Shown here is a 79-nucleotide sequence from Dinothrombium tinctorium, a member of the family "mir-9/mir-79 microRNA precursor family". The match comes from Rfam's covariance-model search (60 bits). Lineage of the source: Eukaryota > Metazoa > Bilateria > Trombidiidae > Dinothrombium.
RNA sequence: UUGUUCUUAACUUUGGUAACCUAGCUUUAUGAUGUUGGAAAUGACACUCAUACAGCUAGAUAACCAAAGAAAAUAACAA
Numbered sequence: 001u002u003g004u005u006c007u008u009a010a011c012u013u014u015g016g017u018a019a020c021c022u023a024g025c026u027u028u029a030u031g032a033u034g035u036u037g038g039a040a041a042u043g044a045c046a047c048u049c050a051u052a053c054a055g056c057u058a059g060a061u062a063a064c065c066a067a068a069g070a071a072a073a074u075a076a077c078a079a
Base pairs, nucleotide, nucleotide: 001079002078003077004076005075007073008072011069012068013067014066015065016064017063019061021059022058023057024056025055026054028052029051030050031049032048